[Rfam]
RNA sequence: GUUGUGGUUAAUGAUGUAUCUUCUUUCCCCGACAUAUCGACUAUGGUGAUAAACAUAUUGCACAAUAAGCCAAUUAUUUCUGAAACCACAAC
Numbered sequence: 001g002u003u004g005u006g007g008u009u010a011a012u013g014a015u016g017u018a019u020c021u022u023c024u025u026u027c028c029c030c031g032a033c034a035u036a037u038c039g040a041c042u043a044u045g046g047u048g049a050u051a052a053a054c055a056u057a058u059u060g061c062a063c064a065a066u067a068a069g070c071c072a073a074u075u076a077u078u079u080c081u082g083a084a085a086c087c088a089c090a091a092c
Stems, first nucleotide, its partner, number of pairs: 001092009
The record is a 92-nucleotide sequence from Labrus bergylta, which matches "Small nucleolar SNORD12/SNORD106" in Rfam. The literature on the family includes a 2003 paper in Nucleic Acids Res by Vitali et al., "Identification of 13 novel human modification guide RNAs". NCBI's taxonomy places the organism under Eukaryota, Teleostomi, Teleostei, Ctenosquamata, Labrus.